[Rfam]
RNA sequence: UCCAGAUGCAGGUGAGCCACUGACUAACGCACAUUGCGUUGCUGCUAAAAUGCCACUGUGCGUGUGACAGCGGCUAACCAGCUUCUAGGAAUGCGUGAU
Numbered sequence: 001u002c003c004a005g006a007u008g009c010a011g012g013u014g015a016g017c018c019a020c021u022g023a024c025u026a027a028c029g030c031a032c033a034u035u036g037c038g039u040u041g042c043u044g045c046u047a048a049a050a051u052g053c054c055a056c057u058g059u060g061c062g063u064g065u066g067a068c069a070g071c072g073g074c075u076a077a078c079c080a081g082c083u084u085c086u087a088g089g090a091a092u093g094c095g096u097g098a099u
Base pairs, nucleotide, nucleotide: 005085006084008082009081011079012078015075016074017073018072020070021069022068024066025064026063028062029061030060031059032058033057035055036054
The record is a 99-nucleotide RNA from Hymenochirus boettgeri, which matches "mir-210 microRNA precursor family" in Rfam.
The base pairs follow the family's consensus structure, which was predicted with WAR.
Rfam 15.1 lists 790 matches to the family in 722 species.
The literature on the family includes a 2005 paper in Proc Natl Acad Sci U S A by Cai et al., "Kaposi's sarcoma-associated herpesvirus expresses an array of viral microRNAs in latently infected cells".
NCBI's taxonomy places the organism under Eukaryota, Opisthokonta, Tetrapoda, Pipidae, Hymenochirus.
The match comes from Rfam's covariance-model search (73 bits).